[Rfam]
RNA sequence: GAUAAAGGGGGUGAAAAGCCCCCUCGCCGUAAGUCCAAGGUUUCCUGCGCAACGUUCAUCGGCGCAGGGUGAGUCGGCCCCUAAGGCGAGGCAGAGAUGCGUAGCUGAUGGGAAACGGGUUAAUAUUCCCGUACCGUCGUAGAAUGCGAUGGGGGGACGGAUCGCGAAAGAUCAUCGGGGUGUUGGAAGUCCCCGUUGCGACAUUGGAGAAGGCGCUUAGGUAAAUCCGGGCGCGCAAUUCAAGGGUGUUGCACGUAGCGCGUUUUUAACGCGUGAAGUGAUUGGAAGUGGUUCCAAGAAAAGCCUCUAAGCUUCAGUUCUACGAGACCGUACCGCAAACCGACACAGGUGGACGGGAUGAAUAUUCCAAGGCGCU
Numbered sequence: 001g002a003u004a005a006a007g008g009g010g011g012u013g014a015a016a017a018g019c020c021c022c023c024u025c026g027c028c029g030u031a032a033g034u035c036c037a038a039g040g041u042u043u044c045c046u047g048c049g050c051a052a053c054g055u056u057c058a059u060c061g062g063c064g065c066a067g068g069g070u071g072a073g074u075c076g077g078c079c080c081c082u083a084a085g086g087c088g089a090g091g092c093a094g095a096g097a098u099g100c101g102u103a104g105c106u107g108a109u110g111g112g113a114a115a116c117g118g119g120u121u122a123a124u125a126u127u128c129c130c131g132u133a134c135c136g137u138c139g140u141a142g143a144a145u146g147c148g149a150u151g152g153g154g155g156g157a158c159g160g161a162u163c164g165c166g167a168a169a170g171a172u173c174a175u176c177g178g179g180g181u182g183u184u185g186g187a188a189g190u191c192c193c194c195g196u197u198g199c200g201a202c203a204u205u206g207g208a209g210a211a212g213g214c215g216c217u218u219a220g221g222u223a224a225a226u227c228c229g230g231g232c233g234c235g236c237a238a239u240u241c242a243a244g245g246g247u248g249u250u251g252c253a254c255g256u257a258g259c260g261c262g263u264u265u266u267u268a269a270c271g272c273g274u275g276a277a278g279u280g281a282u283u284g285g286a287a288g289u290g291g292u293u294c295c296a297a298g299a300a301a302a303g304c305c306u307c308u309a310a311g312c313u314u315c316a317g318u319u320c321u322a323c324g325a326g327a328c329c330g331u332a333c334c335g336c337a338a339a340c341c342g343a344c345a346c347a348g349g350u351g352g353a354c355g356g357g358a359u360g361a362a363u364a365u366u367c368c369a370a371g372g373c374g375c376u
Stems, first nucleotide, its partner, number of pairs: 006024006025374004033354004039334002044068006053061002075330003080111002085106003089102001091100003115132005135326001137325009146312002151307004159294004170283005176195005201249004209241002213234006220228002256276001258274005340349002356368003

A member of the RNA family "Bacterial large subunit ribosomal RNA" from Paralcaligenes ureilyticus, 376 nucleotides of a longer RNA. The family's consensus secondary structure is taken from published work.